[Rfam]
RNA: Small nucleolar RNA SNORA17
RNA sequence: UUUGCCCCUUUAGGCGUUGCAGGCUGACUGUUUUAUGUCGUGUCUGUGUCACAAGGUGGCAGAGAGUGAAGGGCUAUGUCUACGCCAAGUUCCCACAAUGCAAAUGGGUGCUUAGUUUGAUUUGUAGUCCCUACAAA
Dot-bracket structure: .(((((((((..(((...((((.(((((........)))).).)))))))..)))).))))).....(.((((((((.....((.(.(((.(((...........))).).)).)..))....)))).)))).)...